[Rfam]
This 115-nucleotide sequence from Ziziphus jujuba belongs to the Rfam family "MIR477 microRNA precursor family". For this family Rfam cites "Novel and mechanical stress-responsive MicroRNAs in Populus trichocarpa that are absent from Arabidopsis" (Lu et al., Plant Cell, 2005). Its family is annotated with RISC complex and miRNA-mediated post-transcriptional gene silencing in the Gene Ontology. It scores 69 bits against the family's covariance model.
RNA sequence: AAAGGCUUCAAAUUCCCUCGCAGGCUUCCAACAUUCCCACAUAUAUACUGAAUGUUAUCAAUAUAUUCAUAAUCAUAGGGAAAUAUUGGAAGCCUUUGAGGGAAUUUGGAGCCUU
Numbered sequence: 001a002a003a004g005g006c007u008u009c010a011a012a013u014u015c016c017c018u019c020g021c022a023g024g025c026u027u028c029c030a031a032c033a034u035u036c037c038c039a040c041a042u043a044u045a046u047a048c049u050g051a052a053u054g055u056u057a058u059c060a061a062u063a064u065a066u067u068c069a070u071a072a073u074c075a076u077a078g079g080g081a082a083a084u085a086u087u088g089g090a091a092g093c094c095u096u097u098g099a100g101g102g103a104a105u106u107u108g109g110a111g112c113c114u115u
Base pairs, nucleotide, nucleotide: 003114004113005112006111008109009108010107011106012105013104014103015102016101017100018099019098022095023094024093025092026091027090028089029088030087031086033084034083035082